[Rfam]
RNA sequence: CCGGCUUCCAUUGGGGAGUAGCCGCCUGGAGCCGAUGCUCCGGGGGCCACGUCAACAGACUUGACCGCUGUCGCAACGACAUACGGUUAUGGCGUGGUCAGCCGCACUCAGGGUGCCCCGCACCCGGUGACGCGCCUGGCGAGACCGAUGACACGCCUUUCCGGACAGGGCCGGGAAAGGUGCGUCAUUGGUUCGUACACGGCCCGG
Numbered sequence: 001c002c003g004g005c006u007u008c009c010a011u012u013g014g015g016g017a018g019u020a021g022c023c024g025c026c027u028g029g030a031g032c033c034g035a036u037g038c039u040c041c042g043g044g045g046g047c048c049a050c051g052u053c054a055a056c057a058g059a060c061u062u063g064a065c066c067g068c069u070g071u072c073g074c075a076a077c078g079a080c081a082u083a084c085g086g087u088u089a090u091g092g093c094g095u096g097g098u099c100a101g102c103c104g105c106a107c108u109c110a111g112g113g114u115g116c117c118c119c120g121c122a123c124c125c126g127g128u129g130a131c132g133c134g135c136c137u138g139g140c141g142a143g144a145c146c147g148a149u150g151a152c153a154c155g156c157c158u159u160u161c162c163g164g165a166c167a168g169g170g171c172c173g174g175g176a177a178a179g180g181u182g183c184g185u186c187a188u189u190g191g192u193u194c195g196u197a198c199a200c201g202g203c204c205c206g207g
Stems, first nucleotide, its partner, number of pairs: 026043003045099010062089005
Record summary:
Manganese Mn2+ riboswitch aptamer (yybP-ykoY): a 207-nucleotide sequence from Ralstonia solanacearum. The family has 29 seed sequences and 1,126 matches in Rfam 15.1. Lineage of the source: Bacteria > Pseudomonadati > Betaproteobacteria > Burkholderiaceae > Ralstonia solanacearum. Rfam describes the family as follows. This RNA was originally discovered in E. coli during a large scale screen and was named SraF. The family was later found to exist upstream of related families of protein genes in many bacteria, including the the yybP and ykoK genes in B. subtilis.